[Rfam]
RNA sequence: GAUUGUCGGCCAUCUACUCCUCCCAGAUGCGAUGCCGGCGCUGAAUGAGGCGCACCUCCUCCCGCGCCACAUUCGAAAAUCGAGCCCGCUGCCACCUCCUCCCGGCAGCGGGCUUUUUUU
Numbered sequence: 001g002a003u004u005g006u007c008g009g010c011c012a013u014c015u016a017c018u019c020c021u022c023c024c025a026g027a028u029g030c031g032a033u034g035c036c037g038g039c040g041c042u043g044a045a046u047g048a049g050g051c052g053c054a055c056c057u058c059c060u061c062c063c064g065c066g067c068c069a070c071a072u073u074c075g076a077a078a079a080u081c082g083a084g085c086c087c088g089c090u091g092c093c094a095c096c097u098c099c100u101c102c103c104g105g106c107a108g109c110g111g112g113c114u115u116u117u118u119u120u
Stems, first nucleotide, its partner, number of pairs: 007037003011029003043074005049068004082115011
Dot-bracket structure: ......(((.(((.............))).....))).....(((((.((((............)))).))))).......(((((((((((............))))))))))).....
Rfam assigns this 120-nucleotide sequence from Mesorhizobium ciceri to the family "Alphaproteobacterial ar14". Lineage of the source: Bacteria > Pseudomonadota > Hyphomicrobiales > Mesorhizobium ciceri > Mesorhizobium ciceri biovar biserrulae. It is annotated as a small RNA. Its family is annotated with biological process involved in symbiotic interaction in the Gene Ontology. The base pairs follow the family's consensus structure.